[Rfam]
Rfam assigns this 83-nucleotide RNA from Seohaeicola zhoushanensis to the family "chrB-a RNA". Rfam classes the family as a cis-regulatory element. Pairs were carried over by alignment from the consensus structure, which is taken from published work. A search with the family's covariance model found it, with a score of 51 bits.

RNA sequence: CUCAUGGGGACCGAACGCGAACGCCCCGUGAGGCCCAGGCCCAAGGUUCGCAUGUUUGCCUUGCCACAGGAGACAUGCCCAUG
Numbered sequence: 001c002u003c004a005u006g007g008g009g010a011c012c013g014a015a016c017g018c019g020a021a022c023g024c025c026c027c028g029u030g031a032g033g034c035c036c037a038g039g040c041c042c043a044a045g046g047u048u049c050g051c052a053u054g055u056u057u058g059c060c061u062u063g064c065c066a067c068a069g070g071a072g073a074c075a076u077g078c079c080c081a082u083g
Stems, first nucleotide, its partner, number of pairs: 005028005050078006